The family of this 86-nucleotide RNA from Sediminibacillus albus is "c-di-GMP-I riboswitch aptamer".
The base pairs follow the family's consensus structure, which is taken from published work.
A search with the family's covariance model found it, with a score of 82 bits.
RNA sequence: AAAUGAUAAUGGCAAACUUCUCGAAAGAGGAGGACGCAAAGCCUAGGGUCUAAAGCCGUACCGGUCAUGAUCGCCUGGUUGCCGAU
Numbered sequence: 001a002a003a004u005g006a007u008a009a010u011g012g013c014a015a016a017c018u019u020c021u022c023g024a025a026a027g028a029g030g031a032g033g034a035c036g037c038a039a040a041g042c043c044u045a046g047g048g049u050c051u052a053a054a055g056c057c058g059u060a061c062c063g064g065u066c067a068u069g070a071u072c073g074c075c076u077g078g079u080u081g082c083c084g085a086u
Base pairs, nucleotide, nucleotide: 012037013036017032018031019030020029021028022027040080041079042078043077045076046075047074048071049070050069055065056064057063058062
Dot-bracket structure: ...........((...((((((....))))))...))..((((.((((((....((((...))))...)))..)))))))......